[Rfam]
RNA: Alphaproteobacterial sRNA ar9
Organism: Cohaesibacter sp. ES.047
Nucleotides: 179
Base pairs, nucleotide, nucleotide: 001178008032009031010030011029012028013027039139040138041137042136048060049059050058051057064131065130066129067128068127071089072088073087074085075084076083091121151172152171153170154169155168156167157166158165
Number, partner (000 for none) and nucleotide at each position: 001178a002000u003000u004000a005000u006000a007000a008032g009031a010030g011029a012028u013027a014000c015000g016000c017000u018000c019000a020000c021000c022000a023000c024000g025000u026000u027013u028012a029011u030010c031009u032008c033000a034000c035000c036000u037000c038000g039139c040138g041137c042136g043000a044000a045000a046000a047000u048060g049059u050058c051057u052000u053000g054000g055000g056000a057051g058050g059049a060048u061000a062000c063000a064131g065130a066129u067128c068127u069000c070000u071089g072088g073087c074085g075084c076083g077000c078000u079000u080000u081000c082000a083076c084075g085074c086000u087073g088072c089071u090000g091121c092000c093000g094000c095000u096000c097000u098000a099000a100000c101000u102000a103000g104000c105000c106000a107000a108000a109000a110000a111000g112000c113000a114000a115000a116000g117000u118000c119000g120000a121091g122000c123000a124000u125000c126000g127068a128067g129066a130065u131064c132000a133000c134000g135000u136042c137041g138040c139039g140000a141000u142000u143000a144000c145000u146000u147000a148000c149000a150000a151172a152171a153170c154169a155168a156167g157166g158165c159000u160000u161000u162000c163000g164000a165158g166157c167156c168155u169154u170153g171152u172151u173000u174000u175000u176000u177000u178001u179000g